Shown here is a 66-nucleotide RNA sequence from Myotis brandtii, a member of the family "mir-9242 microRNA precursor family".
[Rfam]
RNA sequence: GGCCUCCCUCUUUGGGGCAAUUGAUCAUGGAGCCCCCCCACAUCGAUUGCCCCAUGGAGGGUGGCC
Numbered sequence: 001g002g003c004c005u006c007c008c009u010c011u012u013u014g015g016g017g018c019a020a021u022u023g024a025u026c027a028u029g030g031a032g033c034c035c036c037c038c039c040a041c042a043u044c045g046a047u048u049g050c051c052c053c054a055u056g057g058a059g060g061g062u063g064g065c066c
Stems, first nucleotide, its partner, number of pairs: 001066004006061006013054013029038002

Gene Ontology terms of the family: miRNA-mediated post-transcriptional gene silencing and RISC complex. The family's consensus secondary structure was predicted with RNAalifold.